[Rfam]
The record is a 171-nucleotide RNA from Clostridium cadaveris, which matches "Lysine riboswitch aptamer" in Rfam.
A search with the family's covariance model found it, with a score of 94 bits.
The family's consensus secondary structure is taken from published work.
RNA sequence: UAUGUAAAUAGAGGCGCAGUUAAAAAGAGUAAUGAGAAAGAGGUAGACAGACCUAAGAUAGCUCAUGAAAGGGUUGAUUGCCGAAGAAGGUGUGUAUGUCAGCACAUCUAUCUGGGAUUUGAUUUAAUAAAUCAAGUACUCUCACUAUUAAGUGAUGGAGCUAUUGCAGAU
Dot-bracket structure: ......(((((....((((((((........(((((..(...................)..))))).......))))))))...(((((((((((......)))))))).)))((.((((((((.....)))))))).)).(((((....))))).....)))))......